The family of this 62-nucleotide RNA sequence from Anoxybacillus flavithermus is "RAGATH-18 RNA". Actinobacteria, Firmicutes, Fusobacteria, Thermotogae (1 example).

[Rfam]
RNA sequence: CCUUCGGAGCGCCAAGGAAACGAGAGUAGCUUUUCGCGAAAUCGGGCGCGAUGAACAAGGAA
Dot-bracket structure: ((((....(((((.......(((.....((.....))....)))))))).......))))..